Rfam assigns this 319-nucleotide part of an RNA from Araneus ventricosus to the family "Eukaryotic large subunit ribosomal RNA".
[Rfam]
RNA sequence: GAGUCUAACAUGUGUGCGAGUCAAUGGGUCUCGAAUAAGCCCAGAGGCGCAAUGAAAGCAAAGGUCGGACUCGACGCCGACUGUGUUGGGAUCCCUUCGUCUUCGCACGAGGGGCGCACCAACGACCCGUCCUUUCCAAUUUAUUGGUUGGGCGGAGUUUGAGCAUACACGUUGGGACCCGAAAGAUGGUGAACUAUGCCCGGGCAGGACGAGGCCAGAGGAAACUCUGGUGGAGGUCCGCAGCGGUUCUGACGUGCAAAUCGAUCGUCAGAUCCGGGUAUAGGGGCGAAAGACUAAUCGAACCAUCUAGUAGCUGGUU
Numbered sequence: 001g002a003g004u005c006u007a008a009c010a011u012g013u014g015u016g017c018g019a020g021u022c023a024a025u026g027g028g029u030c031u032c033g034a035a036u037a038a039g040c041c042c043a044g045a046g047g048c049g050c051a052a053u054g055a056a057a058g059c060a061a062a063g064g065u066c067g068g069a070c071u072c073g074a075c076g077c078c079g080a081c082u083g084u085g086u087u088g089g090g091a092u093c094c095c096u097u098c099g100u101c102u103u104c105g106c107a108c109g110a111g112g113g114g115c116g117c118a119c120c121a122a123c124g125a126c127c128c129g130u131c132c133u134u135u136c137c138a139a140u141u142u143a144u145u146g147g148u149u150g151g152g153c154g155g156a157g158u159u160u161g162a163g164c165a166u167a168c169a170c171g172u173u174g175g176g177a178c179c180c181g182a183a184a185g186a187u188g189g190u191g192a193a194c195u196a197u198g199c200c201c202g203g204g205c206a207g208g209a210c211g212a213g214g215c216c217a218g219a220g221g222a223a224a225c226u227c228u229g230g231u232g233g234a235g236g237u238c239c240g241c242a243g244c245g246g247u248u249c250u251g252a253c254g255u256g257c258a259a260a261u262c263g264a265u266c267g268u269c270a271g272a273u274c275c276g277g278g279u280a281u282a283g284g285g286g287c288g289a290a291a292g293a294c295u296a297a298u299c300g301a302a303c304c305a306u307c308u309a310g311u312a313g314c315u316g317g318u319u
Base pairs, nucleotide, nucleotide: 005175006174007173008172009171011169012168013167014166015165016164017163020048021047022046025043026042027041028040029039053058085123086122087121088120089119093114094113095112096111097110098109099108125158126157127155128154129153130152131151132150136146178317179316181314185307186306187305188304189303190302194283195282196281197280198279199278200277201276202275203274204273205271207239208238209237210236214231215230216229217228218227219226220225243268244267245266246265248264249263251262252261285295286294

The source organism's lineage runs through Eukaryota, Protostomia, Ecdysozoa, Arachnida and Araneus.